[Rfam]
Shown here is a 55-nucleotide RNA sequence, a member of the family "Streptococcus sRNA SpF59 (ldcC RNA)". The base pairs follow the family's consensus structure, which was predicted with mfold.
RNA sequence: UGACCUUCCCUAAAAAGGGAACUACGGCCAUACGGACAGCCGGGUCAAUUGCCGA
Numbered sequence: 001u002g003a004c005c006u007u008c009c010c011u012a013a014a015a016a017g018g019g020a021a022c023u024a025c026g027g028c029c030a031u032a033c034g035g036a037c038a039g040c041c042g043g044g045u046c047a048a049u050u051g052c053c054g055a
Base pairs, nucleotide, nucleotide: 001047002046003045004044005043006021007020008019009018010017011016

Rfam's curators put it in the seed alignment.